RNA sequence: CUGGCGUCGGUGCUGGGGAGCGGCCCCCGGGGUGGGCCUCCACUCCGGCCCCUCCUGGGGCCUGCACUCGGGAUCCGGUCCCG
Numbered sequence: 001c002u003g004g005c006g007u008c009g010g011u012g013c014u015g016g017g018g019a020g021c022g023g024c025c026c027c028c029g030g031g032g033u034g035g036g037c038c039u040c041c042a043c044u045c046c047g048g049c050c051c052c053u054c055c056u057g058g059g060g061c062c063u064g065c066a067c068u069c070g071g072g073a074u075c076c077g078g079u080c081c082c083g
Stems, first nucleotide, its partner, number of pairs: 003081002007078004013072001016069003020065004025060007034051005
About this RNA: The record is an 83-nucleotide RNA from Cebus imitator, which matches "mir-1343 microRNA precursor family" in Rfam. The family's consensus secondary structure was predicted with RNAalifold. The organism belongs to Cebus, within Eukaryota. A search with the family's covariance model found it, with a score of 69 bits. Gene Ontology terms of the family: miRNA-mediated post-transcriptional gene silencing and RISC complex.